The record is a 74-nucleotide RNA sequence from Stegodyphus mimosarum, which matches "mir-10 microRNA precursor family" in Rfam. On this family, see Lee and Ambros, Science 2001: "An extensive class of small RNAs in Caenorhabditis elegans". The organism belongs to Stegodyphus, within Eukaryota. The base pairs follow the family's consensus structure, which was predicted with PFOLD.
[Rfam]
RNA sequence: AAGCGGGAACCCGUAGAUCCGAACUUGUGUCGUCGUAGGGUAACCGCAAGCUCGCCUCUACGGGUCCUUGCUUU
Numbered sequence: 001a002a003g004c005g006g007g008a009a010c011c012c013g014u015a016g017a018u019c020c021g022a023a024c025u026u027g028u029g030u031c032g033u034c035g036u037a038g039g040g041u042a043a044c045c046g047c048a049a050g051c052u053c054g055c056c057u058c059u060a061c062g063g064g065u066c067c068u069u070g071c072u073u074u
Stems, first nucleotide, its partner, number of pairs: 002072006010064003015059003020054003024050006